[Rfam]
RNA sequence: CCCGCCACUAUGCCUGUCUGCAUGAGUGAUACGGUGUAUUCCAGUGGGGGCUGAGACUGACCCAGCUCUAGGAAGCAGGGCUGCUCAGACACGUGGGCAGCUCUGUGCCGAAAGGCCUGGAACAAAC
Numbered sequence: 001c002c003c004g005c006c007a008c009u010a011u012g013c014c015u016g017u018c019u020g021c022a023u024g025a026g027u028g029a030u031a032c033g034g035u036g037u038a039u040u041c042c043a044g045u046g047g048g049g050g051c052u053g054a055g056a057c058u059g060a061c062c063c064a065g066c067u068c069u070a071g072g073a074a075g076c077a078g079g080g081c082u083g084c085u086c087a088g089a090c091a092c093g094u095g096g097g098c099a100g101c102u103c104u105g106u107g108c109c110g111a112a113a114g115g116c117c118u119g120g121a122a123c124a125a126a127c
Stems, first nucleotide, its partner, number of pairs: 005047005018034003021028002062120004066115002069112001071109002076105006084097003
RNA: Small nucleolar RNA SNORA65